[Rfam]
RNA sequence: CGGUUUCUGGCGUCAACAGUGCUUGAACAGAACCC
Numbered sequence: 001c002g003g004u005u006u007c008u009g010g011c012g013u014c015a016a017c018a019g020u021g022c023u024u025g026a027a028c029a030g031a032a033c034c035c
Base pairs, nucleotide, nucleotide: 002035003034005032006031007030008029010028013026014025015024016023017021
Source information
A member of the RNA family "Iron response element I" from Dipodomys ordii, 35 nucleotides long. The organism belongs to Dipodomys, within Eukaryota. The family has 62 seed sequences and 6,829 matches in Rfam 15.1. The literature on the family includes a 2008 paper in J Biol Chem by Sammarco et al., "Ferritin L and H subunits are differentially regulated on a post-transcriptional level". Pairs were carried over by alignment from the consensus structure, which is taken from published work.